[Rfam]
RNA sequence: GCGCGCCAAGCGGGGAGUUAGCGGUGCCCUGUACCUGCAAUCCGCUAUAGCAGGGUGUGAUUCCCGCCGUGAGGCGAAGCGCUGUGGGGCUGGAACAAGGGCGAAGCAUUGAAGGCUGUGUCCUGUGCAAUCGGAUGCCGUGAACCAUGUCAGGUCCUGACGGAAGCAGCAUUAAGCGGAAAAUCCGAUGUGCCGCGGGAAUGCAUGGCCGGAGCUUAGCUUAUUGUGUGCCGCCUAUGGUGCUUUAUGUCGAGCGGCGGGUGCGCGU
Numbered sequence: 001g002c003g004c005g006c007c008a009a010g011c012g013g014g015g016a017g018u019u020a021g022c023g024g025u026g027c028c029c030u031g032u033a034c035c036u037g038c039a040a041u042c043c044g045c046u047a048u049a050g051c052a053g054g055g056u057g058u059g060a061u062u063c064c065c066g067c068c069g070u071g072a073g074g075c076g077a078a079g080c081g082c083u084g085u086g087g088g089g090c091u092g093g094a095a096c097a098a099g100g101g102c103g104a105a106g107c108a109u110u111g112a113a114g115g116c117u118g119u120g121u122c123c124u125g126u127g128c129a130a131u132c133g134g135a136u137g138c139c140g141u142g143a144a145c146c147a148u149g150u151c152a153g154g155u156c157c158u159g160a161c162g163g164a165a166g167c168a169g170c171a172u173u174a175a176g177c178g179g180a181a182a183a184u185c186c187g188a189u190g191u192g193c194c195g196c197g198g199g200a201a202u203g204c205a206u207g208g209c210c211g212g213a214g215c216u217u218a219g220c221u222u223a224u225u226g227u228g229u230g231c232c233g234c235c236u237a238u239g240g241u242g243c244u245u246u247a248u249g250u251c252g253a254g255c256g257g258c259g260g261g262u263g264c265g266c267g268u
Base pairs, nucleotide, nucleotide: 001268002267003266004265005264006263008058010056011055012030013029014028015027017025018024019023034054035053036052037051038050063261064260065259066258067257068256069255073251074250075249076248079243080242081241082240083239084238085237086236087235088234092232093231095227096226097225098224100222103220105216106215107214114210115209116208117207118206119205120204121203122199123198124197125196126195127194128190129189131188132187133186134185135184136181138179139178140177141176147172148171149170150169155164156163157162
Bacterial large signal recognition particle RNA: a 268-nucleotide sequence from Clostridium sp. CAG:226. Lineage of the source: Bacteria > Bacillati > Eubacteriales > Clostridiaceae > Clostridium. The match comes from Rfam's covariance-model search (190 bits). Rfam describes the family as follows. The signal recognition particle (SRP) is a universally conserved ribonucleoprotein involved in the co-translational targeting of proteins to membranes.